[Rfam]
A member of the RNA family "Fluoride riboswitch aptamer (crcB RNA motif)" from Enterococcus faecalis, 70 nucleotides long.
RNA sequence: UAGCAACAUGGUGAUGGUGUUCACCACGAACUAUUUAUUGGACGAAUAAAUUAAUGACGCCUACCAAACG
Numbered sequence: 001u002a003g004c005a006a007c008a009u010g011g012u013g014a015u016g017g018u019g020u021u022c023a024c025c026a027c028g029a030a031c032u033a034u035u036u037a038u039u040g041g042a043c044g045a046a047u048a049a050a051u052u053a054a055u056g057a058c059g060c061c062u063a064c065c066a067a068a069c070g
Stems, first nucleotide, its partner, number of pairs: 010025004016061006033051007